[Rfam]
RNA sequence: CACAUAGUUUACUGGCAGUAUGAUAGCUAGAGAUUUAUUUAAGAAGUGAUUAUUGCUAAUUGAAAACUUUUUGCAAUACCUCACCAUUUUGACUUGUAAUAUAGUCAACAUUGGCAAUUUUUUGAUAUUAUCCACAGAG
Numbered sequence: 001c002a003c004a005u006a007g008u009u010u011a012c013u014g015g016c017a018g019u020a021u022g023a024u025a026g027c028u029a030g031a032g033a034u035u036u037a038u039u040u041a042a043g044a045a046g047u048g049a050u051u052a053u054u055g056c057u058a059a060u061u062g063a064a065a066a067c068u069u070u071u072u073g074c075a076a077u078a079c080c081u082c083a084c085c086a087u088u089u090u091g092a093c094u095u096g097u098a099a100u101a102u103a104g105u106c107a108a109c110a111u112u113g114g115c116a117a118u119u120u121u122u123u124g125a126u127a128u129u130a131u132c133c134a135c136a137g138a139g
Stems, first nucleotide, its partner, number of pairs: 020050002024048001026047003034042002084114002086111002089108006128139002131136001
A member of the RNA family "U4 spliceosomal RNA" from Saimiri boliviensis, 139 nucleotides long. Clan: U4 clan. Pairs were carried over by alignment from the consensus structure, which is taken from published work. By type it is a spliceosomal small nuclear RNA. It scores 61 bits against the family's covariance model. U4 small nuclear RNA (U4 snRNA) is a component of the major U2-dependent spliceosome.